[Rfam]
RNA sequence: CUGAGCUGGUGAUGAGAUGGUUAUCCCUGUCUGAAAAAAAAGAAAGCUUCUAAUUUGUGGAGUUGUGUGACUCUGAAGCUCAG
Number, nucleotide and partner (000 for none) at each position: 001c083002u082003g081004a080005g079006c078007u077008g000009g000010u000011g000012a000013u000014g000015a000016g000017a000018u000019g000020g000021u000022u000023a000024u000025c000026c000027c000028u000029g000030u000031c000032u000033g000034a000035a000036a000037a000038a000039a000040a000041a000042g000043a000044a000045a000046g000047c000048u000049u000050c000051u000052a000053a000054u000055u000056u000057g000058u000059g000060g000061a000062g000063u000064u000065g000066u000067g000068u000069g000070a000071c000072u000073c000074u000075g000076a000077a007078g006079c005080u004081c003082a002083g001
RNA: Small nucleolar RNA R38
Organism: Sphenodon punctatus